[Rfam]
RNA sequence: CCGGGAGUCGGGUGGACGUUUGCGUUCGCUCACCGGGUCAGGGCCGGAAGGCAGCAGCCCAGGUGGAUUGCGGCGGGUCGCCCGGCUCCUUUUCC
Dot-bracket structure: ...(((((((((((..((((...(((((((....((((....(((....)))....)))).)))))))...))))...)))))))))))......

A member of the RNA family "Bacterial small signal recognition particle RNA" from Paraurantiacibacter namhicola, 95 nucleotides long. The family's RNA type in Rfam is non-coding RNA gene. Rfam links the family to the GO terms SRP-dependent cotranslational protein targeting to membrane, signal sequence recognition and signal recognition particle, plasma membrane targeting.